[Rfam]
RNA sequence: UCUAACUUUACAAGGGAGAAUAGGAAUGAUGGAACCAUGUUUCCUGAAACUAUUCCAUCAAUACUCCUGCGUGCGUUAUAACUAGCAGAUUAUAAGGUGCGAAGCACAGGUGGAUUCGGUUGAACUGAGGCUGAAGCCAUUCCAGCAGGAAAAGGUAUGCUGACGGAUAGACCGCAUGGCUGAAAA
Numbered sequence: 001u002c003u004a005a006c007u008u009u010a011c012a013a014g015g016g017a018g019a020a021u022a023g024g025a026a027u028g029a030u031g032g033a034a035c036c037a038u039g040u041u042u043c044c045u046g047a048a049a050c051u052a053u054u055c056c057a058u059c060a061a062u063a064c065u066c067c068u069g070c071g072u073g074c075g076u077u078a079u080a081a082c083u084a085g086c087a088g089a090u091u092a093u094a095a096g097g098u099g100c101g102a103a104g105c106a107c108a109g110g111u112g113g114a115u116u117c118g119g120u121u122g123a124a125c126u127g128a129g130g131c132u133g134a135a136g137c138c139a140u141u142c143c144a145g146c147a148g149g150a151a152a153a154g155g156u157a158u159g160c161u162g163a164c165g166g167a168u169a170g171a172c173c174g175c176a177u178g179g180c181u182g183a184a185a186a
Base pairs, nucleotide, nucleotide: 018055019054020053021052022051023050031045032044034042056178057177058176066110067109068108069107070101071100072099073098074097076095077094078093079092080091081090083088117174118173119172120171121170125165129161130160131148132147133146151156